[Rfam]
RNA sequence: ACAUGCCCGUGCAACGAGGCCUCUGUCCGAACCGGCCCUGACGUACUUCCCCGACGCCAGGUCCGCCUCGGACAGGGACCUCGUUGCAGGGGCACCCCUUC
Numbered sequence: 001a002c003a004u005g006c007c008c009g010u011g012c013a014a015c016g017a018g019g020c021c022u023c024u025g026u027c028c029g030a031a032c033c034g035g036c037c038c039u040g041a042c043g044u045a046c047u048u049c050c051c052c053g054a055c056g057c058c059a060g061g062u063c064c065g066c067c068u069c070g071g072a073c074a075g076g077g078a079c080c081u082c083g084u085u086g087c088a089g090g091g092g093c094a095c096c097c098c099u100u101c
Base pairs, nucleotide, nucleotide: 010088011087012086013085014084015083016082018080019079021077022076023075024074025073026072027071028070029069030068033065034064035063037061038060039059040058042056043055044054
Shown here is a 101-nucleotide sequence from Mycolicibacterium neoaurum, a member of the family "mraW RNA". The base pairs follow the family's consensus structure, which is taken from published work.